[Rfam]
RNA sequence: GCGCUUGUUGACAAAGUGCCCGGUCGGGACAAGAUGCUAGAUCGUAAACACGCCGUAAAUCCAUCCCUGGAGGCUCGAUCCGCGCCAUCCCUGGCGCGGACGGUUU
Numbered sequence: 001g002c003g004c005u006u007g008u009u010g011a012c013a014a015a016g017u018g019c020c021c022g023g024u025c026g027g028g029a030c031a032a033g034a035u036g037c038u039a040g041a042u043c044g045u046a047a048a049c050a051c052g053c054c055g056u057a058a059a060u061c062c063a064u065c066c067c068u069g070g071a072g073g074c075u076c077g078a079u080c081c082g083c084g085c086c087a088u089c090c091c092u093g094g095c096g097c098g099g100a101c102g103g104u105u106u
Stems, first nucleotide, its partner, number of pairs: 013106003017102002020027002028076002040065003044062001046060001050056002080099008
Dot-bracket structure: ............(((.((.((....))((..........(((.(.(...((...))...).)))).........))...((((((((....)))))))).)).)))
This 106-nucleotide RNA sequence from Sodalis ligni belongs to the Rfam family "Yersinia sRNA 224". Gene Ontology term of the family: response to temperature stimulus. The family's RNA type in Rfam is small RNA. The organism belongs to Sodalis, within Bacteria. The family has 5 seed sequences and 130 matches in Rfam 15.1.